[Rfam]
RNA sequence: UCACUUAAAUAGCAAACCCGGAGAAAUCCGGCGACGCAAAGCUACAGGGACCGAAAGGUCAGCCAGCUGCACUU
Numbered sequence: 001u002c003a004c005u006u007a008a009a010u011a012g013c014a015a016a017c018c019c020g021g022a023g024a025a026a027u028c029c030g031g032c033g034a035c036g037c038a039a040a041g042c043u044a045c046a047g048g049g050a051c052c053g054a055a056a057g058g059u060c061a062g063c064c065a066g067c068u069g070c071a072c073u074u
Base pairs, nucleotide, nucleotide: 012037013036018031019030020029021028022027040068041067042066043065047064048063049060050059051058
RNA: c-di-GMP-I riboswitch aptamer
Organism: Oribacterium sp. KHPX15